Annotation:
The record is a 100-nucleotide sequence from Sporosarcina sp. BI001-red, which matches "Purine riboswitch aptamer" in Rfam. The base pairs follow the family's consensus structure, which is taken from published work. A search with the family's covariance model found it, with a score of 78 bits.
[Rfam]
RNA sequence: ACUUCAUACUAAAAAUCAAUCUGUAUAACCUCGAUAAUAUGGUUCGAGGGUCUCUACCAGGAUCCGUUAAGUCCUGACUACAAAAGAAUUUUUGUAGUCG
Numbered sequence: 001a002c003u004u005c006a007u008a009c010u011a012a013a014a015a016u017c018a019a020u021c022u023g024u025a026u027a028a029c030c031u032c033g034a035u036a037a038u039a040u041g042g043u044u045c046g047a048g049g050g051u052c053u054c055u056a057c058c059a060g061g062a063u064c065c066g067u068u069a070a071g072u073c074c075u076g077a078c079u080a081c082a083a084a085a086g087a088a089u090u091u092u093u094g095u096a097g098u099c100g
Base pairs, nucleotide, nucleotide: 020084022082023081024080025079029049030048031047032046033045034044058076059075060074061073062072063071